Rfam assigns this 77-nucleotide RNA from Myotis myotis to the family "Small nucleolar RNA SNORD83". The source organism's lineage runs through Eukaryota, Gnathostomata, Amniota, Mammalia and Myotis. A search with the family's covariance model found it, with a score of 86 bits. The literature on the family includes a 2000 paper in Nucleic Acids Res by Jady and Kiss, "Characterisation of the U83 and U84 small nucleolar RNAs: two novel 2'-O-ribose methylation guide RNAs that lack complementarities to ribosomal RNAs".
RNA sequence: GCCACAUGAUGUGUCCGCUCUGGAGGUGAGCGCUCUGCGCAGUGAUGACCUUCAUCUAUCACCCUGGACUGAUGGCU
Numbered sequence: 001g002c003c004a005c006a007u008g009a010u011g012u013g014u015c016c017g018c019u020c021u022g023g024a025g026g027u028g029a030g031c032g033c034u035c036u037g038c039g040c041a042g043u044g045a046u047g048a049c050c051u052u053c054a055u056c057u058a059u060c061a062c063c064c065u066g067g068a069c070u071g072a073u074g075g076c077u
Stems, first nucleotide, its partner, number of pairs: 001076004030040004
Dot-bracket structure: ((((.........................((((...))))................................)))).